U12 minor spliceosomal RNA: a 162-nucleotide RNA from Acaulospora morrowiae. A search with the family's covariance model found it, with a score of 87 bits. On this family, see Tarn and Steitz, Trends Biochem Sci 1997: "Pre-mRNA splicing: the discovery of a new spliceosome doubles the challenge".
RNA sequence: UUGCCUCAAAUUAAUGAGUAAGGAUAAUAUAGGAUUUGGGUGAUACCUUAUCCACCAUAUACAUUCUGUAUAUGUAGGUUCACCAAUAUUUGGCGGGAUAUAGGUCGGCCUUGAGUGUUCUUCGCCUACUUUGCGAAGUUCGUUCAUGAUGCUGAUCUCCCG
Numbered sequence: 001u002u003g004c005c006u007c008a009a010a011u012u013a014a015u016g017a018g019u020a021a022g023g024a025u026a027a028u029a030u031a032g033g034a035u036u037u038g039g040g041u042g043a044u045a046c047c048u049u050a051u052c053c054a055c056c057a058u059a060u061a062c063a064u065u066c067u068g069u070a071u072a073u074g075u076a077g078g079u080u081c082a083c084c085a086a087u088a089u090u091u092g093g094c095g096g097g098a099u100a101u102a103g104g105u106c107g108g109c110c111u112u113g114a115g116u117g118u119u120c121u122u123c124g125c126c127u128a129c130u131u132u133g134c135g136a137a138g139u140u141c142g143u144u145c146a147u148g149a150u151g152c153u154g155a156u157c158u159c160c161c162g
Stems, first nucleotide, its partner, number of pairs: 004023003008019001032053004038047002054080001056078001058076004094162005103157007112146002115143003121137005
The family's RNA type in Rfam is spliceosomal small nuclear RNA. The organism belongs to Acaulospora, within Eukaryota.